This 80-nucleotide sequence from Scyliorhinus torazame belongs to the Rfam family "mir-194 microRNA precursor family". The family has 46 seed sequences and 936 matches in Rfam 15.1. Gene Ontology terms of the family: miRNA-mediated post-transcriptional gene silencing and RISC complex.
Nucleotides: 080
Stems, first nucleotide, its partner, number of pairs: 010073003016067008026057005033051003
Number, partner (000 for none) and nucleotide at each position: 001000u002000a003000g004000u005000g006000g007000c008000c009000a010073u011072c012071a013000g014000u015000u016067g017066u018065a019064a020063c021062a022061g023060c024000a025000a026057c027056u028055c029054c030053a031000u032000g033051u034050g035049g036000u037000g038000g039000u040000a041000c042000u043000c044000u045000g046000a047000u048000c049035c050034c051033a052000c053030u054029g055028g056027a057026g058000g059000u060023g061022c062021u063020g064019u065018u066017a067016u068000c069000u070000c071012u072011g073010a074000c075000a076000g077000u078000c079000a080000c
It scores 62 bits against the family's covariance model. The organism belongs to Scyliorhinus, within Eukaryota. For this family Rfam cites "New microRNAs from mouse and human" (Lagos-Quintana et al., RNA, 2003).